Source information:
glmS glucosamine-6-phosphate activated ribozyme aptamer: a 157-nucleotide RNA from Clostridium sp. JN-9. The literature on the family includes a 2006 paper in Nat Struct Mol Biol by Jansen et al., "Backbone and nucleobase contacts to glucosamine-6-phosphate in the glmS ribozyme". NCBI's taxonomy places the organism under Bacteria, Bacillota, Clostridia, Eubacteriales, Clostridium. It scores 107 bits against the family's covariance model.
RNA sequence: AAAAUCUUUAAAGCGCCAGAAGUUAAGCCUUUUGGAUUAACUUGACGAGGACGGGGAGUAUCGAAGUCUUCGGCGGAUGCCCCGCGGUAAGCACUACCGUUAAAGAUUGGUAAAGCCAGAAAGUGAUUUCUGGAACAACAUCAAUCAGGUGUUAAAA
Numbered sequence: 001a002a003a004a005u006c007u008u009u010a011a012a013g014c015g016c017c018a019g020a021a022g023u024u025a026a027g028c029c030u031u032u033u034g035g036a037u038u039a040a041c042u043u044g045a046c047g048a049g050g051a052c053g054g055g056g057a058g059u060a061u062c063g064a065a066g067u068c069u070u071c072g073g074c075g076g077a078u079g080c081c082c083c084g085c086g087g088u089a090a091g092c093a094c095u096a097c098c099g100u101u102a103a104a105g106a107u108u109g110g111u112a113a114a115g116c117c118a119g120a121a122a123g124u125g126a127u128u129u130c131u132g133g134a135a136c137a138a139c140a141u142c143a144a145u146c147a148g149g150u151g152u153u154a155a156a157a
Stems, first nucleotide, its partner, number of pairs: 020043007029034001052084005061073004085099005105146005116133007